The family of this 74-nucleotide sequence from Clostridium sp. USBA 49 is "tRNA".
RNA sequence: GCGGCAGUAGCUCAGUUGGAUAGAGUAGCUGGCUACGAACCAGUUGGUCGGGGGUUCGAAUCCUCUCUGCCGCA
Numbered sequence: 001g002c003g004g005c006a007g008u009a010g011c012u013c014a015g016u017u018g019g020a021u022a023g024a025g026u027a028g029c030u031g032g033c034u035a036c037g038a039a040c041c042a043g044u045u046g047g048u049c050g051g052g053g054g055u056u057c058g059a060a061u062c063c064u065c066u067c068u069g070c071c072g073c074a
Stems, first nucleotide, its partner, number of pairs: 001073007010026004028044005050066005
The source organism's lineage runs through Bacteria, Bacillota, Clostridia, Clostridiaceae and Clostridium. From the family's description: Transfer RNA (tRNA) molecules are approximately 80 nucleotides in length. Pairs were carried over by alignment from the consensus structure, which is taken from published work. Gene Ontology term of the family: triplet codon-amino acid adaptor activity.